[Rfam]
RNA sequence: GGAUGUGAGGGUGAUCUGGCUGCGACAUCUGUCACUCCAUUGAUCGCCAGGGUUGAUUUGGCUGAUCUGGCUGGCUAAGCGGGUGUCCCCUUCCUCCCUCACCACUCCAUGUGCAUCCCUCCUGAAGCUGUGCGCCCAGUCGAAGAGGACAACCAUCUCCGAUAGAGGAGGACCCUUUUUCUCGGUCAAGGGUAUACGAGUAGCUGCUACCCCCUGCUAGAACCUCCAAACGAGCUCUCAGGAAUCCCAGAAGCUUGCCAUAGCUGUAUGCAAAAAUGGUCCCCAUCAGUGUCCUUCCCAU
Numbered sequence: 001g002g003a004u005g006u007g008a009g010g011g012u013g014a015u016c017u018g019g020c021u022g023c024g025a026c027a028u029c030u031g032u033c034a035c036u037c038c039a040u041u042g043a044u045c046g047c048c049a050g051g052g053u054u055g056a057u058u059u060g061g062c063u064g065a066u067c068u069g070g071c072u073g074g075c076u077a078a079g080c081g082g083g084u085g086u087c088c089c090c091u092u093c094c095u096c097c098c099u100c101a102c103c104a105c106u107c108c109a110u111g112u113g114c115a116u117c118c119c120u121c122c123u124g125a126a127g128c129u130g131u132g133c134g135c136c137c138a139g140u141c142g143a144a145g146a147g148g149a150c151a152a153c154c155a156u157c158u159c160c161g162a163u164a165g166a167g168g169a170g171g172a173c174c175c176u177u178u179u180u181c182u183c184g185g186u187c188a189a190g191g192g193u194a195u196a197c198g199a200g201u202a203g204c205u206g207c208u209a210c211c212c213c214c215u216g217c218u219a220g221a222a223c224c225u226c227c228a229a230a231c232g233a234g235c236u237c238u239c240a241g242g243a244a245u246c247c248c249a250g251a252a253g254c255u256u257g258c259c260a261u262a263g264c265u266g267u268a269u270g271c272a273a274a275a276a277u278g279g280u281c282c283c284c285a286u287c288a289g290u291g292u293c294c295u296u297c298c299c300a301u
Base pairs, nucleotide, nucleotide: 001108002107003106005102006101007100008099009098010097011096013093014092018090019089024087025086026085027084028083029082030081031080032079035074036073037070038069039068042067043066044065045064046062047061048060116171117170118168119167120166121165122139123138124137127135128134140162141161142160147158148157149156203264204263205262209261216258217257224253225252227250234248
Notes: The family of this 301-nucleotide RNA from Camelus dromedarius is "7SK RNA". Lineage of the source: Eukaryota > Chordata > Teleostomi > Boreoeutheria > Camelus. 7SK was discovered as an abundant small nuclear RNA in the mid-70s but a possible function has only recently been suggested. Two independent studies have found that 7SK RNA binds the CDK9/cyclin T complex (known as elongation factor P-TEFb). The family is grouped with related families in Rfam's "7SK clan". The match comes from Rfam's covariance-model search (245 bits).